[Rfam]
RNA sequence: GAAAUUCUUCGGGGCGGGGUGCAAUUCCCCACCGGCGGUAAAGCCCGCGAGUCUUUAUAGAUUGAUCCGGUGAGAUUCCGGAGCCGACAGUAAAGUCUGGAUGGUAGAAGAAUGAU
Numbered sequence: 001g002a003a004a005u006u007c008u009u010c011g012g013g014g015c016g017g018g019g020u021g022c023a024a025u026u027c028c029c030c031a032c033c034g035g036c037g038g039u040a041a042a043g044c045c046c047g048c049g050a051g052u053c054u055u056u057a058u059a060g061a062u063u064g065a066u067c068c069g070g071u072g073a074g075a076u077u078c079c080g081g082a083g084c085c086g087a088c089a090g091u092a093a094a095g096u097c098u099g100g101a102u103g104g105u106a107g108a109a110g111a112a113u114g115a116u
Stems, first nucleotide, its partner, number of pairs: 004113007017029003031096002033086002035048004043084002051062003066082005088099003
A member of the RNA family "FMN riboswitch aptamer (RFN element)" from a Lachnospiraceae bacterium, 116 nucleotides long. The source organism's lineage runs through Bacteria, Bacillota, Clostridia, Lachnospirales and Lachnospiraceae. A search with the family's covariance model found it, with a score of 123 bits.